Description: Rfam assigns this 74-nucleotide RNA from Pteropus alecto to the family "Small nucleolar RNA SNORD113/SNORD114 family". It is annotated as a C/D-box small nucleolar RNA. The imprinted human domain at 14q32 contains two clusters of tandemly repeated small nucleolar RNAs named 14q(I) and 14q(II) snoRNAs. These two clusters are named SNORD113 and SNORD114 respectively in the HGNC approved gene symbol nomenclature. The snoRNAs found in both clusters are clearly related and are represented here by a single family. Pairs were carried over by alignment from the consensus structure, which is taken from published work. NCBI's taxonomy places the organism under Eukaryota, Gnathostomata, Tetrapoda, Boreoeutheria, Pteropus. For this family Rfam cites "Identification of tandemly-repeated C/D snoRNA genes at the imprinted human 14q32 domain reminiscent of those at the Prader-Willi/Angelman syndrome region" (Cavaille et al., Hum Mol Genet, 2002).

[Rfam]
RNA sequence: UGGACCCAUACUGACCACUGGUGGCGUAUGAGUUAUGAACAGGAAUACAAUGUGUCUGGAACUCUGACGUCUGA
Numbered sequence: 001u002g003g004a005c006c007c008a009u010a011c012u013g014a015c016c017a018c019u020g021g022u023g024g025c026g027u028a029u030g031a032g033u034u035a036u037g038a039a040c041a042g043g044a045a046u047a048c049a050a051u052g053u054g055u056c057u058g059g060a061a062c063u064c065u066g067a068c069g070u071c072u073g074a
Base pairs, nucleotide, nucleotide: 002072003071004070005069